[Rfam]
RNA: ZMP/ZTP riboswitch aptamer (pfl RNA motif)
RNA sequence: AAAGUUGCAUGUGACUGGCGAAGAGAUGUGGAAUGAACCACGAGGGAGCAUGCAGCCGGAACGAACCGUUCGCCUGGGGAAAAGUA
Numbered sequence: 001a002a003a004g005u006u007g008c009a010u011g012u013g014a015c016u017g018g019c020g021a022a023g024a025g026a027u028g029u030g031g032a033a034u035g036a037a038c039c040a041c042g043a044g045g046g047a048g049c050a051u052g053c054a055g056c057c058g059g060a061a062c063g064a065a066c067c068g069u070u071c072g073c074c075u076g077g078g079g080a081a082a083a084g085u086a
Stems, first nucleotide, its partner, number of pairs: 004056009015045002017074005028041004066078002